This 89-nucleotide RNA sequence from Scyliorhinus torazame belongs to the Rfam family "Vault RNA".

RNA sequence: GCGUCAGCUUUAGCUCACUGGUUACUUCACAGCGUCAACUUAAUUGUAAAUUCGGACCUGUCUCACGCUGGGCGCUGCCUGGCGCUUUU
Numbered sequence: 001g002c003g004u005c006a007g008c009u010u011u012a013g014c015u016c017a018c019u020g021g022u023u024a025c026u027u028c029a030c031a032g033c034g035u036c037a038a039c040u041u042a043a044u045u046g047u048a049a050a051u052u053c054g055g056a057c058c059u060g061u062c063u064c065a066c067g068c069u070g071g072g073c074g075c076u077g078c079c080u081g082g083c084g085c086u087u088u089u
Stems, first nucleotide, its partner, number of pairs: 002084006013073004020069002026056003

NCBI's taxonomy places the organism under Eukaryota, Deuterostomia, Galeomorphii, Scyliorhinidae, Scyliorhinus. The base pairs follow the family's consensus structure, which is taken from published work. This family of RNAs are found as part of the enigmatic vault ribonucleoprotein complex. The complex consists of a major vault protein (MVP), two minor vault proteins (VPARP and TEP1), and several small untranslated RNA molecules. It has been suggested that the vault complex is involved in drug resistance.